[Rfam]
RNA sequence: GGGAGUGAAUGGGUCCUGGUGGGCCUCCUGGUCUUCAAAACCAGUCGCGGGGCGAGAAACCCCGGGUGGGUUCGAUUCCCACGCACUCCC
Numbered sequence: 001g002g003g004a005g006u007g008a009a010u011g012g013g014u015c016c017u018g019g020u021g022g023g024c025c026u027c028c029u030g031g032u033c034u035u036c037a038a039a040a041c042c043a044g045u046c047g048c049g050g051g052g053c054g055a056g057a058a059a060c061c062c063c064g065g066g067u068g069g070g071u072u073c074g075a076u077u078c079c080c081a082c083g084c085a086c087u088c089c090c
Stems, first nucleotide, its partner, number of pairs: 001090007011026006028044005048064005067081004
RNA: Selenocysteine transfer RNA
Organism: Desulforudis audaxviator